A member of the RNA family "mir-12 microRNA precursor family" from Daphnia pulex, 72 nucleotides long.
Gene Ontology terms of the family: RISC complex and miRNA-mediated post-transcriptional gene silencing.
It is one of the family's seed sequences.
RNA sequence: CCGUCCGUGAGUAUUACAUCAGGUACUGGUUGUAUGUGCAUGAUACCAGUACCAUUGUAACACUCUCAACGG
Numbered sequence: 001c002c003g004u005c006c007g008u009g010a011g012u013a014u015u016a017c018a019u020c021a022g023g024u025a026c027u028g029g030u031u032g033u034a035u036g037u038g039c040a041u042g043a044u045a046c047c048a049g050u051a052c053c054a055u056u057g058u059a060a061c062a063c064u065c066u067c068a069a070c071g072g
Base pairs, nucleotide, nucleotide: 001072002071003070004069010064011063012062016058017057018056019054022053023052024051025050026049027048028047029046030045